The record is a 397-nucleotide RNA from Symmachiella dynata, which matches "Bacterial RNase P class A" in Rfam. Rfam classes the family as a ribozyme.
[Rfam]
RNA sequence: GGAGUGGGCUAAGCGAUCGCUGCGAGCCCCCAACUUGGGUUGGAAACAAUUCAAUGCGGGUCUCGGAGAGGAAAGUCCGGGCUUCAUAGGGUACAGCGGUGGGUAACGCCCACCGUCCGCGAGGAUCGGGAAAGUGCAACAGAAAGAAUACCGCCCGCAAGGGUAAGGGUGAAAUGGUGGGGUAAGAGCCCACCGCGAGGCGGGUGACCGUCUCGGCAUGGCAAACCCCGCUGGAAGCAAGACCAAGCAGAAAGCAGUUCCGGGAAGUCCGCUUCCCGGGCGCGGGUCGUCCCGGCUCGUUACGACUUUCGGGUAGGUUGCUAGAGGCGGCGAGCAAUCGUCGCCGUAGAGAAAUGAUCGCUCACGACACAACCCGGCUUACAGGCCCACUCCGGUU
Numbered sequence: 001g002g003a004g005u006g007g008g009c010u011a012a013g014c015g016a017u018c019g020c021u022g023c024g025a026g027c028c029c030c031c032a033a034c035u036u037g038g039g040u041u042g043g044a045a046a047c048a049a050u051u052c053a054a055u056g057c058g059g060g061u062c063u064c065g066g067a068g069a070g071g072a073a074a075g076u077c078c079g080g081g082c083u084u085c086a087u088a089g090g091g092u093a094c095a096g097c098g099g100u101g102g103g104u105a106a107c108g109c110c111c112a113c114c115g116u117c118c119g120c121g122a123g124g125a126u127c128g129g130g131a132a133a134g135u136g137c138a139a140c141a142g143a144a145a146g147a148a149u150a151c152c153g154c155c156c157g158c159a160a161g162g163g164u165a166a167g168g169g170u171g172a173a174a175u176g177g178u179g180g181g182g183u184a185a186g187a188g189c190c191c192a193c194c195g196c197g198a199g200g201c202g203g204g205u206g207a208c209c210g211u212c213u214c215g216g217c218a219u220g221g222c223a224a225a226c227c228c229c230g231c232u233g234g235a236a237g238c239a240a241g242a243c244c245a246a247g248c249a250g251a252a253a254g255c256a257g258u259u260c261c262g263g264g265a266a267g268u269c270c271g272c273u274u275c276c277c278g279g280g281c282g283c284g285g286g287u288c289g290u291c292c293c294g295g296c297u298c299g300u301u302a303c304g305a306c307u308u309u310c311g312g313g314u315a316g317g318u319u320g321c322u323a324g325a326g327g328c329g330g331c332g333a334g335c336a337a338u339c340g341u342c343g344c345c346g347u348a349g350a351g352a353a354a355u356g357a358u359c360g361c362u363c364a365c366g367a368c369a370c371a372a373c374c375c376g377g378c379u380u381a382c383a384g385g386c387c388c389a390c391u392c393c394g395g396u397u
Stems, first nucleotide, its partner, number of pairs: 001393010012362007020068002023065004028060003073380003077377005082237004089298004094233005099113005114128001115126004129228002134226002136222002151168002153164004176194006195217001196215008241319004250310005289303002293299001326345008